[Rfam]
RNA sequence: AAUGGAUACGUAAAAUCACCUCAUAUAUUUCUAGGGAUAUGGCCUAGAAGUCUCUACCCAGUACCGUAAAUGCUGGACUAUGGGGGAAGAUGAAUCGUUG
Numbered sequence: 001a002a003u004g005g006a007u008a009c010g011u012a013a014a015a016u017c018a019c020c021u022c023a024u025a026u027a028u029u030u031c032u033a034g035g036g037a038u039a040u041g042g043c044c045u046a047g048a049a050g051u052c053u054c055u056a057c058c059c060a061g062u063a064c065c066g067u068a069a070a071u072g073c074u075g076g077a078c079u080a081u082g083g084g085g086g087a088a089g090a091u092g093a094a095u096c097g098u099u100g
Stems, first nucleotide, its partner, number of pairs: 019085007029049007058076006

This 100-nucleotide RNA sequence from Oceanobacillus halophilus belongs to the Rfam family "Purine riboswitch aptamer". The organism belongs to Oceanobacillus, within Bacteria.